[Rfam]
RNA: TPP riboswitch aptamer (THI element)
Organism: Pectinatus brassicae
RNA sequence: AAUAUUUUGCAAGGGAGCCUAUGAAAGAGGCUGAGAAAGGGCUGUGAGCACCUGACCUUUGACCUGAUCGGGAUAAUGCCUGCGUAGGAAGCUUGUGAUUUAUUGGA
Numbered sequence: 001a002a003u004a005u006u007u008u009g010c011a012a013g014g015g016a017g018c019c020u021a022u023g024a025a026a027g028a029g030g031c032u033g034a035g036a037a038a039g040g041g042c043u044g045u046g047a048g049c050a051c052c053u054g055a056c057c058u059u060u061g062a063c064c065u066g067a068u069c070g071g072g073a074u075a076a077u078g079c080c081u082g083c084g085u086a087g088g089a090a091g092c093u094u095g096u097g098a099u100u101u102a103u104u105g106g107a
Base pairs, nucleotide, nucleotide: 006095009092010091011059012058013057014056016053017031018030019029020028039051041049042048063088064087065086066085069082070081071080072079